This 59-nucleotide RNA sequence belongs to the Rfam family "Glutamine riboswitch aptamer (glnA leader)". The sequence is in the family's curated seed alignment. The literature on the family includes a 2011 paper in RNA Biol by Ames and Breaker, "Bacterial aptamers that selectively bind glutamine".
[Rfam]
RNA sequence: AUCGUUCAUCCUUGUUUGGGGACGGAAGUAGGUAAAAAAUCAAACCGAAGGAACGCAUC
Number, nucleotide and partner (000 for none) at each position: 001a000002u000003c055004g054005u053006u052007c051008a000009u022010c021011c020012u019013u018014g000015u000016u000017u000018g013019g012020g011021g010022a009023c000024g000025g056026a000027a000028g000029u000030a000031g046032g045033u044034a000035a000036a000037a000038a000039a000040u000041c000042a000043a000044a033045c032046c031047g000048a000049a000050g000051g007052a006053a005054c004055g003056c025057a000058u000059c000